Rfam assigns this 69-nucleotide sequence from Leishmania major to the family "Trypanosomatid snoRNA TB9Cs3H1".
RNA sequence: AGUACGAUUAAACACGGACGCGCCGCUGCAUACGCUUGGUGCUGGCGCCGUCCGCCAGUGUCGUACGAG
Number, nucleotide and partner (000 for none) at each position: 001a000002g066003u065004a064005c063006g062007a061008u060009u000010a000011a000012a000013c000014a000015c000016g053017g052018a051019c050020g000021c000022g046023c045024c000025g000026c000027u000028g042029c041030a000031u000032a000033c000034g000035c000036u000037u000038g000039g000040u000041g029042c028043u000044g000045g023046c022047g000048c000049c000050g019051u018052c017053c016054g000055c000056c000057a000058g000059u000060g008061u007062c006063g005064u004065a003066c002067g000068a000069g000
On this family, see Liang et al., RNA 2005: "A genome-wide analysis of C/D and H/ACA-like small nucleolar RNAs in Trypanosoma brucei reveals a trypanosome-specific pattern of rRNA modification". Pairs were carried over by alignment from the consensus structure, which was predicted with WAR. Rfam's curators put it in the seed alignment. It is annotated as an H/ACA-box small nucleolar RNA.